[Rfam]
RNA sequence: UCUGGAUAAAGGCACAACCUGGGAAACCAGGUGUCGCAAAGUCACGGGUCCCAUCUUUGUUGUGGGGACGGCCGCACUGCCGAU
Numbered sequence: 001u002c003u004g005g006a007u008a009a010a011g012g013c014a015c016a017a018c019c020u021g022g023g024a025a026a027c028c029a030g031g032u033g034u035c036g037c038a039a040a041g042u043c044a045c046g047g048g049u050c051c052c053a054u055c056u057u058u059g060u061u062g063u064g065g066g067g068a069c070g071g072c073c074g075c076a077c078u079g080c081c082g083a084u
Base pairs, nucleotide, nucleotide: 012037013036017032018031019030020029021028022027040078041077042076045074046073047072048069049068050067051065052064053063054062
The record is an 84-nucleotide sequence from Pontibacterium sinense, which matches "c-di-GMP-I riboswitch aptamer" in Rfam. The match comes from Rfam's covariance-model search (58 bits). Its family is annotated with cyclic-di-GMP binding in the Gene Ontology. About the family: GEMM was predicted in a large-scale screen for bacterial structured RNA regulatory elements.